Rfam assigns this 128-nucleotide sequence from Nicotiana attenuata to the family "MIR6152 microRNA precursor family". Its family is annotated with miRNA-mediated post-transcriptional gene silencing and RISC complex in the Gene Ontology. Pairs were carried over by alignment from the consensus structure, which was predicted with RNAalifold. The organism belongs to Nicotiana, within Eukaryota. The match comes from Rfam's covariance-model search (62 bits).
RNA sequence: UAGACAGAUUAUUGUAUUUGGCUGUAUUCACGAUAUGUAUUUGUGAAUACAGUAACUCAAAUAGCACAAUUCAUGGUCUAUUCAGCUGUUUUAAACGGAAAGUGGAUCAAUUAACAUAAUAGACUCCU
Number, nucleotide and partner (000 for none) at each position: 001u000002a000003g126004a125005c000006a000007g000008a000009u122010u121011a120012u119013u118014g117015u116016a000017u114018u113019u000020g112021g111022c000023u109024g108025u000026a107027u106028u105029c104030a103031c102032g000033a000034u097035a000036u095037g089038u088039a087040u000041u085042u084043g083044u000045g000046a000047a000048u000049a000050c000051a000052g000053u000054a000055a000056c000057u000058c000059a000060a000061a000062u000063a000064g000065c000066a000067c000068a000069a000070u000071u000072c000073a000074u000075g000076g000077u000078c000079u000080a000081u000082u000083c043084a042085g041086c000087u039088g038089u037090u000091u000092u000093a000094a000095a036096c000097g034098g000099a000100a000101a000102g031103u030104g029105g028106a027107u026108c024109a023110a000111u021112u020113a018114a017115c000116a015117u014118a013119a012120u011121a010122g009123a000124c000125u004126c003127c000128u000